[Rfam]
Nucleotides: 084
Base pairs, nucleotide, nucleotide: 001084003081004080011036012035016031017030018029019028020027021026034070039077040076041075042074044073045072046071047068048067049066
Number, partner (000 for none) and nucleotide at each position: 001084u002000a003081u004080c005000u006000u007000a008000a009000g010000g011036g012035c013000a014000a015000a016031c017030c018029a019028a020027u021026c022000g023000a024000a025000a026021g027020g028019u029018u030017g031016g032000g033000a034070c035012g036011c037000a038000a039077a040076g041075c042074c043000a044073u045072g046071g047068g048067u049066c050000u051000a052000a053000g054000g055000c056000g057000u058000c059000a060000g061000g062000c063000u064000a065000u066049g067048a068047c069000u070034g071046c072045c073044a074042g075041g076040c077039u078000g079000c080004g081003g082000a083000g084001g